Rfam assigns this 229-nucleotide part of an RNA from Chondromyces crocatus to the family "Bacterial large subunit ribosomal RNA". The organism belongs to Chondromyces, within Bacteria.
[Rfam]
RNA sequence: GAGUUACGCUACGUGGCGAGGUUAAGCCGAUAGGUGGAGCCGAAGCGAAAGCGAGUCCUAACAGGGCGACAAGUCGCGUGGCGUAGACCCGAAACCUUAGCGAUCUAUCCAUGUCCAGGUUGAAGAGCGGGUAACACCGCUUGGAGGACCGAACUCACCACAGUUGAAAAUGUGGGGGAUGAGGUGUGGAUAGGAGUGAAAGGCUAAUCAAGCUGGGAUAUAGCUGGUU
Numbered sequence: 001g002a003g004u005u006a007c008g009c010u011a012c013g014u015g016g017c018g019a020g021g022u023u024a025a026g027c028c029g030a031u032a033g034g035u036g037g038a039g040c041c042g043a044a045g046c047g048a049a050a051g052c053g054a055g056u057c058c059u060a061a062c063a064g065g066g067c068g069a070c071a072a073g074u075c076g077c078g079u080g081g082c083g084u085a086g087a088c089c090c091g092a093a094a095c096c097u098u099a100g101c102g103a104u105c106u107a108u109c110c111a112u113g114u115c116c117a118g119g120u121u122g123a124a125g126a127g128c129g130g131g132u133a134a135c136a137c138c139g140c141u142u143g144g145a146g147g148a149c150c151g152a153a154c155u156c157a158c159c160a161c162a163g164u165u166g167a168a169a170a171u172g173u174g175g176g177g178g179a180u181g182a183g184g185u186g187u188g189g190a191u192a193g194g195a196g197u198g199a200a201a202g203g204c205u206a207a208u209c210a211a212g213c214u215g216g217g218a219u220a221u222a223g224c225u226g227g228u229u
Base pairs, nucleotide, nucleotide: 005085006084007083008082009081010080011079012078013077014076015075016074017073020041021040022039023038026035027034028033045052046051055067056066057065058064088227089226091224095217096216097215099214100213101212105193106192107191108190109189110188111187112186113185114184115183116181118150119149120148121147125142126141127140128139129138130137154178155177156176158175159174160173161172162171195205196204197203